[Rfam]
RNA sequence: GCAUAAUAAUUAUAAAUAAGUAUAUAACUUAUGGCUAGAGGUUUAGACCUACAAUCACCUAGAACACAAAACACACGGCUGAAGAGGACCUGAACCGAUAGGUCCUAGAACGGCCUGAGGUAGAGGGGUUUUAGUCGGUAGGUCCGAGGACACCUUCCUCGGGAAUCUGACACUACCCAGUUGUGCGGACGGCAGGGUGUCUUUUGAAGAUUUCCCCUCUUCCACGAAA
Numbered sequence: 001g002c003a004u005a006a007u008a009a010u011u012a013u014a015a016a017u018a019a020g021u022a023u024a025u026a027a028c029u030u031a032u033g034g035c036u037a038g039a040g041g042u043u044u045a046g047a048c049c050u051a052c053a054a055u056c057a058c059c060u061a062g063a064a065c066a067c068a069a070a071a072c073a074c075a076c077g078g079c080u081g082a083a084g085a086g087g088a089c090c091u092g093a094a095c096c097g098a099u100a101g102g103u104c105c106u107a108g109a110a111c112g113g114c115c116u117g118a119g120g121u122a123g124a125g126g127g128g129u130u131u132u133a134g135u136c137g138g139u140a141g142g143u144c145c146g147a148g149g150a151c152a153c154c155u156u157c158c159u160c161g162g163g164a165a166u167c168u169g170a171c172a173c174u175a176c177c178c179a180g181u182u183g184u185g186c187g188g189a190c191g192g193c194a195g196g197g198u199g200u201c202u203u204u205u206g207a208a209g210a211u212u213u214c215c216c217c218u219c220u221u222c223c224a225c226g227a228a229a
Stems, first nucleotide, its partner, number of pairs: 040096006103227002106224001119223002122220002125216003134171005143163008173199001176197003
RNA: R2 RNA element
Organism: Agrilus planipennis